[Rfam]
RNA sequence: UCACAAGGAUGAUACUCCUGAACUCUCUCUUGCUGAGAUUUUUGUGGAGAUAACACCUUACUACCUGAGUGGC
Numbered sequence: 001u002c003a004c005a006a007g008g009a010u011g012a013u014a015c016u017c018c019u020g021a022a023c024u025c026u027c028u029c030u031u032g033c034u035g036a037g038a039u040u041u042u043u044g045u046g047g048a049g050a051u052a053a054c055a056c057c058u059u060a061c062u063a064c065c066u067g068a069g070u071g072g073c
Base pairs, nucleotide, nucleotide: 001072002071003070004069